[Rfam]
Nucleotides: 080
Base pairs, nucleotide, nucleotide: 001080002079003078004077005076007074008073009072010071011070012069013068014067015066016065017064018063024057025056026054027053029051030050031049032048
Number, partner (000 for none) and nucleotide at each position: 001080u002079u003078g004077g005076g006000g007074g008073a009072a010071a011070u012069c013068a014067a015066u016065g017064u018063a019000u020000c021000a022000c023000c024057u025056a026054c027053a028000c029051u030050u031049u032048g033000a034000a035000a036000a037000u038000g039000u040000a041000a042000c043000c044000c045000a046000c047000a048032u049031a050030a051029a052000a053027u054026g055000a056025u057024g058000a059000g060000a061000c062000a063018u064017a065016c066015a067014u068013u069012g070011a071010u072009u073008u074007c075000a076005c077004c078003c079002a080001a